The family of this 63-nucleotide RNA sequence is "S4-Fusobacteriales ribosomal protein leader".
RNA sequence: CUGUAAAGAUAUGUUGGCCGUAGGGCCAUCUCCGAGUUUUAGGAAGCGGAACAUAUCGAUGAA
Numbered sequence: 001c002u003g004u005a006a007a008g009a010u011a012u013g014u015u016g017g018c019c020g021u022a023g024g025g026c027c028a029u030c031u032c033c034g035a036g037u038u039u040u041a042g043g044a045a046g047c048g049g050a051a052c053a054u055a056u057c058g059a060u061g062a063a
Stems, first nucleotide, its partner, number of pairs: 008057006015028005031050004

The literature on the family includes a 2020 paper in BMC Microbiol by Eckert and Weinberg, "Discovery of 20 novel ribosomal leader candidates in bacteria and archaea". The family's RNA type in Rfam is cis-regulatory leader. The family is grouped with related families in Rfam's "Ribosomal Protein S4 Leader clan".